The record is a 115-nucleotide sequence from Chenopodium quinoa, which matches "small nucleolar RNA snoR127" in Rfam. The organism belongs to Chenopodium, within Eukaryota. The family's RNA type in Rfam is C/D-box small nucleolar RNA. The family's consensus secondary structure was predicted with RNAalifold. Rfam 15.1 lists 273 matches to the family in 170 species. The match comes from Rfam's covariance-model search (37 bits). Its family is annotated with nucleolus and RNA processing in the Gene Ontology.
RNA sequence: CUGGAAUGAUGCUAUUUAGCCAAAUCUGAUACAGAUGUGCUCCUUGUGGCUGUUUUUUCUAAGGUCAUUAUAUUGCCAUUUAAGUCAUCUUAGGGCCUGUUCUGUUCAGCUCAGA
Numbered sequence: 001c002u003g004g005a006a007u008g009a010u011g012c013u014a015u016u017u018a019g020c021c022a023a024a025u026c027u028g029a030u031a032c033a034g035a036u037g038u039g040c041u042c043c044u045u046g047u048g049g050c051u052g053u054u055u056u057u058u059c060u061a062a063g064g065u066c067a068u069u070a071u072a073u074u075g076c077c078a079u080u081u082a083a084g085u086c087a088u089c090u091u092a093g094g095g096c097c098u099g100u101u102c103u104g105u106u107c108a109g110c111u112c113a114g115a
Base pairs, nucleotide, nucleotide: 001114002113003112004111